Description
A member of the RNA family "Small nucleolar RNA R30/Z108" from Carnegiea gigantea, 100 nucleotides long. Rfam classes the family as a C/D-box small nucleolar RNA. snoR30 is a C/D box small nucleolar RNA which acts as a methylation guide for 18S ribosomal RNA in plants. The literature on the family includes a 2002 paper in Curr Biol by Marker et al., "Experimental RNomics. Identification of 140 Candidates for Small Non-Messenger RNAs in the Plant Arabidopsis thaliana". The organism belongs to Carnegiea, within Eukaryota.
RNA sequence: UGAGAUUGCAAUGAGGAUAACAAGCUCCCUCUUCUGAAGAAAAGUUGAGGAAAUUUGCUGGCAGAAUCGAACCACAAUAAACCUUGCCACCGCUGAGCAA
Numbered sequence: 001u002g003a004g005a006u007u008g009c010a011a012u013g014a015g016g017a018u019a020a021c022a023a024g025c026u027c028c029c030u031c032u033u034c035u036g037a038a039g040a041a042a043a044g045u046u047g048a049g050g051a052a053a054u055u056u057g058c059u060g061g062c063a064g065a066a067u068c069g070a071a072c073c074a075c076a077a078u079a080a081a082c083c084u085u086g087c088c089a090c091c092g093c094u095g096a097g098c099a100a
Stems, first nucleotide, its partner, number of pairs: 006100004